This 354-nucleotide part of an RNA from Halomonas cerina belongs to the Rfam family "Bacterial small subunit ribosomal RNA".
Taxonomically the source falls in Halomonas (Bacteria, Gammaproteobacteria, Oceanospirillales, Halomonadaceae).
The match comes from Rfam's covariance-model search (1561 bits).
RNA sequence: GGCGUAAAGCGCGCGUAGGCGGCGUGAUAAGCCGGUUGUGAAAGCCCCGGGCUCAACCUGGGAAUGGCAUCCGGAACUGUCAGGCUAGAGUGCAGGAGAGGAAGGUAGAAUUCCCGGUGUAGCGGUGAAAUGCGUAGAGAUCGGGAGGAAUACCAGUGGCGAAGGCGGCCUUCUGGACUGACACUGACGCUGAGGUGCGAAAGCGUGGGUAGCAAACAGGAUUAGAUACCCUGGUAGUCCACGCCGUAAACGAUGUCGACUAGCCGUUGGGGUCCUUGAGACCUUUGUGGCGCAGUUAACGCACUAAGUCGACCGCCUGGGGAGUACGGCCGCAAGGUUAAAACUCAAAUGAAU
Numbered sequence: 001g002g003c004g005u006a007a008a009g010c011g012c013g014c015g016u017a018g019g020c021g022g023c024g025u026g027a028u029a030a031g032c033c034g035g036u037u038g039u040g041a042a043a044g045c046c047c048c049g050g051g052c053u054c055a056a057c058c059u060g061g062g063a064a065u066g067g068c069a070u071c072c073g074g075a076a077c078u079g080u081c082a083g084g085c086u087a088g089a090g091u092g093c094a095g096g097a098g099a100g101g102a103a104g105g106u107a108g109a110a111u112u113c114c115c116g117g118u119g120u121a122g123c124g125g126u127g128a129a130a131u132g133c134g135u136a137g138a139g140a141u142c143g144g145g146a147g148g149a150a151u152a153c154c155a156g157u158g159g160c161g162a163a164g165g166c167g168g169c170c171u172u173c174u175g176g177a178c179u180g181a182c183a184c185u186g187a188c189g190c191u192g193a194g195g196u197g198c199g200a201a202a203g204c205g206u207g208g209g210u211a212g213c214a215a216a217c218a219g220g221a222u223u224a225g226a227u228a229c230c231c232u233g234g235u236a237g238u239c240c241a242c243g244c245c246g247u248a249a250a251c252g253a254u255g256u257c258g259a260c261u262a263g264c265c266g267u268u269g270g271g272g273u274c275c276u277u278g279a280g281a282c283c284u285u286u287g288u289g290g291c292g293c294a295g296u297u298a299a300c301g302c303a304c305u306a307a308g309u310c311g312a313c314c315g316c317c318u319g320g321g322g323a324g325u326a327c328g329g330c331c332g333c334a335a336g337g338u339u340a341a342a343a344c345u346c347a348a349a350u351g352a353a354u
Stems, first nucleotide, its partner, number of pairs: 001317003009314001011198004016192001018191003022085002025082004030078002032074004037069003046062006089185003093180003100174007107151001111147008122133003159166002203244006212238002217233004255313006263291005269285006295302002319346003328339004